Source information: The family of this 101-nucleotide sequence from Treponema denticola is "TD-2 RNA". It is one of the family's seed sequences.
[Rfam]
RNA sequence: GCGGACAGGAUGUCCGCCUGUAUAAGCUGUACGAGUUUUUUGCGUAAGCAAAAACACUCGAAGAUGAAAAAUGUACUUUGGAUGUACAUUUUUCAUCGGUC
Numbered sequence: 001g002c003g004g005a006c007a008g009g010a011u012g013u014c015c016g017c018c019u020g021u022a023u024a025a026g027c028u029g030u031a032c033g034a035g036u037u038u039u040u041u042g043c044g045u046a047a048g049c050a051a052a053a054a055c056a057c058u059c060g061a062a063g064a065u066g067a068a069a070a071a072u073g074u075a076c077u078u079u080g081g082a083u084g085u086a087c088a089u090u091u092u093u094c095a096u097c098g099g100u101c
Stems, first nucleotide, its partner, number of pairs: 001017006032060005037054006063097014
Dot-bracket structure: ((((((.....))))))..............(((((((((((......)))))).)))))..((((((((((((((.......))))))))))))))....